[Rfam]
Description
This 120-nucleotide RNA sequence from Glycine max belongs to the Rfam family "MIR1520 microRNA precursor family". Its family is annotated with miRNA-mediated post-transcriptional gene silencing and RISC complex in the Gene Ontology. The family has 18 seed sequences and 1,934 matches in Rfam 15.1. The organism belongs to Glycine subgen. Soja, within Eukaryota. The family's consensus secondary structure was predicted with RNAalifold.

RNA sequence: UUCUUAUUGGAUGAUGAUUGUCACGUGUCAUGUUCUGAUUAGAUGUCAACUCCAUGAAAGGUGAAAUGAAUUAUUGUUUUCAUUGACCAAUUAGAACAUGACACGUGGUAGUUAACAUCA
Numbered sequence: 001u002u003c004u005u006a007u008u009g010g011a012u013g014a015u016g017a018u019u020g021u022c023a024c025g026u027g028u029c030a031u032g033u034u035c036u037g038a039u040u041a042g043a044u045g046u047c048a049a050c051u052c053c054a055u056g057a058a059a060g061g062u063g064a065a066a067u068g069a070a071u072u073a074u075u076g077u078u079u080u081c082a083u084u085g086a087c088c089a090a091u092u093a094g095a096a097c098a099u100g101a102c103a104c105g106u107g108g109u110a111g112u113u114a115a116c117a118u119c120a
Base pairs, nucleotide, nucleotide: 020109021108022107023106025104026103029100030099031098033096034095035094036093038091039090040089